[Rfam]
RNA sequence: AAAUAGUGGAGUUCAGAAACUACUAAAAUAAACGGGGAGGUACAGAAAAUCCUUAAGUAUAAAAUAA
Numbered sequence: 001a002a003a004u005a006g007u008g009g010a011g012u013u014c015a016g017a018a019a020c021u022a023c024u025a026a027a028a029u030a031a032a033c034g035g036g037g038a039g040g041u042a043c044a045g046a047a048a049a050u051c052c053u054u055a056a057g058u059a060u061a062a063a064a065u066a067a
Stems, first nucleotide, its partner, number of pairs: 006023004036052003044060001
RNA: DUF805 RNA